[Rfam]
Rfam assigns this 452-nucleotide part of an RNA from Carlito syrichta to the family "Eukaryotic large subunit ribosomal RNA". Gene Ontology terms of the family: structural constituent of ribosome and ribosome. A search with the family's covariance model found it, with a score of 2022 bits.

RNA sequence: UGGGUGUGGGUGGGUGGGUGGUGGCAGCCCCCAUGGGCCAUCCACCUCCAGUGCCCUGCCCUGGCUGUCCCCGUUCCUCUGCUCUGCGCCAGUCUCCUCCAUCGGGUCUAUCCCUGGGGCCGCGGUUUCACGUGGUGCCCCACCUCGGCUGGUGCCUAGCAGAUGACUUAGAACUAGUGCAGACCAGUGGAAUCUGACUGUUUAAUGAAAACAGAGCAACACGAAGGCCUGCGGCGGGUGUUGACACGAUGUGAUUUCUGCCCAGUGCUCUAAAUGUCAAAGUGAAGAAAUUCAAUGAAGUACAGGUAAAUGGCAGGAGUAACUAUGACUCUCUUAAGGUAGCCAAAUGCCUUGUCAUCUAAUUAGUGACACCCAUGAAUGGAUGAAUGAGAUUCCUACUGUCCCUACCUACUAUCCAGCGAAACCACAACCAAGGGAACGGGCUUGGUGGA
Numbered sequence: 001u002g003g004g005u006g007u008g009g010g011u012g013g014g015u016g017g018g019u020g021g022u023g024g025c026a027g028c029c030c031c032c033a034u035g036g037g038c039c040a041u042c043c044a045c046c047u048c049c050a051g052u053g054c055c056c057u058g059c060c061c062u063g064g065c066u067g068u069c070c071c072c073g074u075u076c077c078u079c080u081g082c083u084c085u086g087c088g089c090c091a092g093u094c095u096c097c098u099c100c101a102u103c104g105g106g107u108c109u110a111u112c113c114c115u116g117g118g119g120c121c122g123c124g125g126u127u128u129c130a131c132g133u134g135g136u137g138c139c140c141c142a143c144c145u146c147g148g149c150u151g152g153u154g155c156c157u158a159g160c161a162g163a164u165g166a167c168u169u170a171g172a173a174c175u176a177g178u179g180c181a182g183a184c185c186a187g188u189g190g191a192a193u194c195u196g197a198c199u200g201u202u203u204a205a206u207g208a209a210a211a212c213a214g215a216g217c218a219a220c221a222c223g224a225a226g227g228c229c230u231g232c233g234g235c236g237g238g239u240g241u242u243g244a245c246a247c248g249a250u251g252u253g254a255u256u257u258c259u260g261c262c263c264a265g266u267g268c269u270c271u272a273a274a275u276g277u278c279a280a281a282g283u284g285a286a287g288a289a290a291u292u293c294a295a296u297g298a299a300g301u302a303c304a305g306g307u308a309a310a311u312g313g314c315a316g317g318a319g320u321a322a323c324u325a326u327g328a329c330u331c332u333c334u335u336a337a338g339g340u341a342g343c344c345a346a347a348u349g350c351c352u353u354g355u356c357a358u359c360u361a362a363u364u365a366g367u368g369a370c371a372c373c374c375a376u377g378a379a380u381g382g383a384u385g386a387a388u389g390a391g392a393u394u395c396c397u398a399c400u401g402u403c404c405c406u407a408c409c410u411a412c413u414a415u416c417c418a419g420c421g422a423a424a425c426c427a428c429a430a431c432c433a434a435g436g437g438a439a440c441g442g443g444c445u446u447g448g449u450g451g452a
Base pairs, nucleotide, nucleotide: 001418002417003416004415009413010412011411012410013409014408015407016404017403018402081167083163084162085161086160088153089152090151091150092149093148094147189396190395191394192393193392194391195389196388199213200212201211216252217251218250220248223245225241227239228238229237230236256383257382258381260314261313262312265311266310267307268306269305275302276301277300283294284293285292286291316332317331318330319329320328334338354370355369356368357367358366431448432447433446434445435444